Record summary: A member of the RNA family "Xanthomonadaceae sRNA asX1" from Pseudoxanthomonas spadix, 117 nucleotides long. On this family, see Schmidtke et al., Nucleic Acids Res 2011: "Genome-wide transcriptome analysis of the plant pathogen Xanthomonas identifies sRNAs with putative virulence functions". A search with the family's covariance model found it, with a score of 90 bits. Pairs were carried over by alignment from the consensus structure, which was predicted with CMfinder.
RNA sequence: CACCCAUCGUGGCAAGCGACUUCGGGCGCCCAAGGCUGGUAUUGGAACAGGGGCCAGCCGCUAGCGCACGUUGGGGAUGCAGGGGCCGGUAGUCGGGGGACUGCCGGCCCCAUUUUU
Numbered sequence: 001c002a003c004c005c006a007u008c009g010u011g012g013c014a015a016g017c018g019a020c021u022u023c024g025g026g027c028g029c030c031c032a033a034g035g036c037u038g039g040u041a042u043u044g045g046a047a048c049a050g051g052g053g054c055c056a057g058c059c060g061c062u063a064g065c066g067c068a069c070g071u072u073g074g075g076g077a078u079g080c081a082g083g084g085g086c087c088g089g090u091a092g093u094c095g096g097g098g099g100a101c102u103g104c105c106g107g108c109c110c111c112a113u114u115u116u117u
Stems, first nucleotide, its partner, number of pairs: 003075004008070004012065002016029003034059006042051002082111013